[Rfam]
RNA sequence: AAUUUAAAAAGCCAAAUUCUGAGAAAUUGAGUGACGGAAAACUAAUGGAUCUAAGGAUGAAUAUCUAUGCCAGCCAGUUACCAAG
Numbered sequence: 001a002a003u004u005u006a007a008a009a010a011g012c013c014a015a016a017u018u019c020u021g022a023g024a025a026a027u028u029g030a031g032u033g034a035c036g037g038a039a040a041a042c043u044a045a046u047g048g049a050u051c052u053a054a055g056g057a058u059g060a061a062u063a064u065c066u067a068u069g070c071c072a073g074c075c076a077g078u079u080a081c082c083a084a085g
Base pairs, nucleotide, nucleotide: 012037013036018031020029021028022027040079041078042077043076047075048074051069056065057064058063
Shown here is an 85-nucleotide RNA sequence from Terrisporobacter othiniensis, a member of the family "c-di-GMP-I riboswitch aptamer".
Taxonomically the source falls in Terrisporobacter (Bacteria, Bacillota, Clostridia, Peptostreptococcaceae).
Rfam's curators write: GEMM was predicted in a large-scale screen for bacterial structured RNA regulatory elements.